The family of this 101-nucleotide RNA sequence from Cohnella terricola is "Purine riboswitch aptamer".

[Rfam]
RNA sequence: CAUGCAACUGAAUAUUCUUUUCGUAUAAUCCCGGGAAUAGGCCCGGGAGUCUCUACGAGGUCACCGCAAAUGAUCUGUCUACGAAAAGGGAAGUAUCGCAU
Dot-bracket structure: .................((((((((...(((((((......))))))).........((((((.......))))))...))))))))..............
Numbered sequence: 001c002a003u004g005c006a007a008c009u010g011a012a013u014a015u016u017c018u019u020u021u022c023g024u025a026u027a028a029u030c031c032c033g034g035g036a037a038u039a040g041g042c043c044c045g046g047g048a049g050u051c052u053c054u055a056c057g058a059g060g061u062c063a064c065c066g067c068a069a070a071u072g073a074u075c076u077g078u079c080u081a082c083g084a085a086a087a088g089g090g091a092a093g094u095a096u097c098g099c100a101u
Stems, first nucleotide, its partner, number of pairs: 018087008029048007058076006
A reference for the family is Mandal et al. (2003), "Riboswitches Control Fundamental Biochemical Pathways in Bacillus subtilis and Other Bacteria", Cell.